[Rfam]
The record is a 135-nucleotide sequence from Perkinsus marinus, which matches "U4 spliceosomal RNA" in Rfam.
Rfam 15.1 lists 32,178 matches to the family in 2,547 species.
RNA sequence: AUCCUUGCGGGAGGGGCAAUAGCGCUAUCUAUGACGCCUUGCGGAGAUGCGCUUUUUGCUAGUUGAAAACUACUCCAAUUCCCGUCGCGAGAUUCUAACGGAUCCCGUCGCAAUUUUAGGGCGCCUCGCAUGAGG
Numbered sequence: 001a002u003c004c005u006u007g008c009g010g011g012a013g014g015g016g017c018a019a020u021a022g023c024g025c026u027a028u029c030u031a032u033g034a035c036g037c038c039u040u041g042c043g044g045a046g047a048u049g050c051g052c053u054u055u056u057u058g059c060u061a062g063u064u065g066a067a068a069a070c071u072a073c074u075c076c077a078a079u080u081c082c083c084g085u086c087g088c089g090a091g092a093u094u095c096u097a098a099c100g101g102a103u104c105c106c107g108u109c110g111c112a113a114u115u116u117u118a119g120g121g122c123g124c125c126u127c128g129c130a131u132g133a134g135g
Stems, first nucleotide, its partner, number of pairs: 021053005027048003035043003084111002088107002091104005124135004

The family's consensus secondary structure is taken from published work. Rfam classes the family as a spliceosomal small nuclear RNA. Rfam's curators put it in the seed alignment. U4 small nuclear RNA (U4 snRNA) is a component of the major U2-dependent spliceosome. The family is grouped with related families in Rfam's "U4 clan". Gene Ontology terms of the family: spliceosomal tri-snRNP complex assembly and U4 snRNP.